Rfam assigns this 84-nucleotide RNA from Anisakis simplex to the family "mir-44 microRNA precursor family". Its family is annotated with miRNA-mediated post-transcriptional gene silencing and RISC complex in the Gene Ontology. Rfam 15.1 lists 66 matches to the family in 44 species. Taxonomically the source falls in Anisakis simplex complex (Eukaryota, Rhabditida, Spirurina, Anisakidae).

RNA sequence: GAGAGAUGAAUCUGGAUGUCUCUCGCAGUCAUACGGUCUUUGAGUAAAAUCUAUGACUAGAGACACAUUCAGCUUUAUUACUCG
Dot-bracket structure: ....(((((..((((((((...(...(((((((..................)))))))...)..))))))))..))))).....